[Rfam]
RNA sequence: UUAAAAACGAUGAAGGGGAAAAGUAGCCAAUGCUGCCUUAAGGGAGAGUGUAUCGUGACUGGGAGUACACUUAGGAUACGGUUGAGCGAACGAACACCCUGGAGUUGGUUAGUUGAAAGUUCUAGGACGAUUAGAUUAAUCCGUAUGUCCUGCGUUAUAAGGACUUUAAGUGGGCAGGAAUCCAUUCUUGCUCAGUAGGGUGGUACCACGGGAAUAAUACCUCUCGUCCCUGAC
Numbered sequence: 001u002u003a004a005a006a007a008c009g010a011u012g013a014a015g016g017g018g019a020a021a022a023g024u025a026g027c028c029a030a031u032g033c034u035g036c037c038u039u040a041a042g043g044g045a046g047a048g049u050g051u052a053u054c055g056u057g058a059c060u061g062g063g064a065g066u067a068c069a070c071u072u073a074g075g076a077u078a079c080g081g082u083u084g085a086g087c088g089a090a091c092g093a094a095c096a097c098c099c100u101g102g103a104g105u106u107g108g109u110u111a112g113u114u115g116a117a118a119g120u121u122c123u124a125g126g127a128c129g130a131u132u133a134g135a136u137u138a139a140u141c142c143g144u145a146u147g148u149c150c151u152g153c154g155u156u157a158u159a160a161g162g163a164c165u166u167u168a169a170g171u172g173g174g175c176a177g178g179a180a181u182c183c184a185u186u187c188u189u190g191c192u193c194a195g196u197a198g199g200g201u202g203g204u205a206c207c208a209c210g211g212g213a214a215u216a217a218u219a220c221c222u223c224u225c226g227u228c229c230c231u232g233a234c
Stems, first nucleotide, its partner, number of pairs: 007105002015100004026087002028084004037075003048070006108140007142154003173192007197231004208227005
A member of the RNA family "T-box leader" from Acetivibrio clariflavus, 234 nucleotides long. The match comes from Rfam's covariance-model search (110 bits). Rfam 15.1 lists 19,395 matches to the family in 1,923 species. Uncharged tRNA acts as the effector for transcription antitermination of genes in the T-box leader family. T-boxes are found upstream of many aminoacyl-tRNA synthetase genes and some amino acid biosynthetic genes usually in Gram-positive bacteria. The anticodon of a specific tRNA base pairs to a specifier sequence within the T-box motif, and the NCCA acceptor tail of the tRNA base pairs to a conserved bulge in the T-box antiterminator hairpin.